[Rfam]
RNA sequence: GCAUGGGUUUGGAUUUAUGGCAGGCCCGUUCCCCUGGGUCUGUCAUAGUGUCCCGUGCUAGAGCAACCCGUGGCCCCGAACCAUUGCCUGGCCUCUGCCUGUAGGCUGCUGGCACUGAAGUGGGUCGCACAGAA
Numbered sequence: 001g002c003a004u005g006g007g008u009u010u011g012g013a014u015u016u017a018u019g020g021c022a023g024g025c026c027c028g029u030u031c032c033c034c035u036g037g038g039u040c041u042g043u044c045a046u047a048g049u050g051u052c053c054c055g056u057g058c059u060a061g062a063g064c065a066a067c068c069c070g071u072g073g074c075c076c077c078g079a080a081c082c083a084u085u086g087c088c089u090g091g092c093c094u095c096u097g098c099c100u101g102u103a104g105g106c107u108g109c110u111g112g113c114a115c116u117g118a119a120g121u122g123g124g125u126c127g128c129a130c131a132g133a134a
Stems, first nucleotide, its partner, number of pairs: 001058004005053004015048006022041003025037002071127006082117002087112002089108006
Background
Small nucleolar RNA SNORA42/SNORA80 family: a 134-nucleotide RNA. Rfam describes the family as follows. The members of this family belong to the H/ACA class of snoRNAs that guide the sites of modification of uridines to pseudouridines. The literature on the family includes a 2006 paper in RNA by Schattner et al., "A computational screen for mammalian pseudouridylation guide H/ACA RNAs".